[Rfam]
Nucleotides: 047
Stems, first nucleotide, its partner, number of pairs: 007041002010038002014034004
Number, partner (000 for none) and nucleotide at each position: 001000a002000c003000g004000a005000g006000c007041c008040u009000u010038g011037a012000a013000a014034c015033a016032a017031u018000a019000a020000a021000g022000a023000u024000u025000g026000a027000g028000a029000a030000g031017g032016u033015u034014g035000a036000c037011u038010c039000a040008a041007g042000a043000a044000u045000a046000a047000a
Record summary:
The family of this 47-nucleotide sequence from Prunus persica is "Plastid-rpl16 group II-D1 intron". From the family's description: Plastid-rpl16 is a non-coding RNA (ncRNA) recognised in plastids. It was recognised in and intronic region of a ribosome rpl16 gene. A reference for the family is Richter et al. (2023), "Retrograde signaling in plants: A critical review focusing on the GUN pathway and beyond", Plant Commun. The family's consensus secondary structure was predicted with LocARNA. The match comes from Rfam's covariance-model search (53 bits). Lineage of the source: Eukaryota > eudicotyledons > fabids > Amygdaloideae > Prunus. Its family is annotated with Group II intron splicing in the Gene Ontology.